RNA sequence: AACAAAGUGAUGAAAAGGACAACCAAUUUAACGGAAAAUUAUAGAGAGGAAGGGCUAGCUGGGAACCUUCUAUUGGAACUUAAAUUUGGACCACCUUGGAACUUCUAUUAGGAACGUUUUUUACUAGUAAUAAUAGACGGAUCGCUCCGUUACAGGCGACAAGAGUGAAGUAGUUAAUUUUAGCUAUUUCUGAAUCUUGGGUGGAACCACGAGCAUAAACUCGUCCCUUGA
Dot-bracket structure: ......((......((((.......((((((.....(((........((((((............))))))))).....))))))........))))...))..((((((....................)))))).(((......)))..................(((((((........))))))).........(((.......(((((......))))))))....
Numbered sequence: 001a002a003c004a005a006a007g008u009g010a011u012g013a014a015a016a017g018g019a020c021a022a023c024c025a026a027u028u029u030a031a032c033g034g035a036a037a038a039u040u041a042u043a044g045a046g047a048g049g050a051a052g053g054g055c056u057a058g059c060u061g062g063g064a065a066c067c068u069u070c071u072a073u074u075g076g077a078a079c080u081u082a083a084a085u086u087u088g089g090a091c092c093a094c095c096u097u098g099g100a101a102c103u104u105c106u107a108u109u110a111g112g113a114a115c116g117u118u119u120u121u122u123a124c125u126a127g128u129a130a131u132a133a134u135a136g137a138c139g140g141a142u143c144g145c146u147c148c149g150u151u152a153c154a155g156g157c158g159a160c161a162a163g164a165g166u167g168a169a170g171u172a173g174u175u176a177a178u179u180u181u182a183g184c185u186a187u188u189u190c191u192g193a194a195u196c197u198u199g200g201g202u203g204g205a206a207c208c209a210c211g212a213g214c215a216u217a218a219a220c221u222c223g224u225c226c227c228u229u230g231a
Stems, first nucleotide, its partner, number of pairs: 007102002015097004026085006037074003048071006105136006138149003168189007199227003209224005